[Rfam]
RNA: Epstein-Barr virus nuclear antigen (EBNA) IRES
RNA sequence: AGAGGAUGAAGACUAAGUCACAGGCUUAGCCAGGUAACUUAGGAAGCGUUUCUUGAGCUUCCCUGGGAGAGCUGAUUCUGCAGCCCAGAGAGUAGUCUCAGGGCAUCCUCUGGAGCCUGACCUGUGAUCGUCGCAUCAUAGACCGCCAGUAGACCUGGGAGCAGAUUCACCGCCGCGGCCGUCUCCUUUAAGACCCCACC
Numbered sequence: 001a002g003a004g005g006a007u008g009a010a011g012a013c014u015a016a017g018u019c020a021c022a023g024g025c026u027u028a029g030c031c032a033g034g035u036a037a038c039u040u041a042g043g044a045a046g047c048g049u050u051u052c053u054u055g056a057g058c059u060u061c062c063c064u065g066g067g068a069g070a071g072c073u074g075a076u077u078c079u080g081c082a083g084c085c086c087a088g089a090g091a092g093u094a095g096u097c098u099c100a101g102g103g104c105a106u107c108c109u110c111u112g113g114a115g116c117c118u119g120a121c122c123u124g125u126g127a128u129c130g131u132c133g134c135a136u137c138a139u140a141g142a143c144c145g146c147c148a149g150u151a152g153a154c155c156u157g158g159g160a161g162c163a164g165a166u167u168c169a170c171c172g173c174c175g176c177g178g179c180c181g182u183c184u185c186c187u188u189u190a191a192g193a194c195c196c197c198a199c200c
Stems, first nucleotide, its partner, number of pairs: 002019002046176003055110003060068003074107002080104002085102002112171002117164003122141007146158004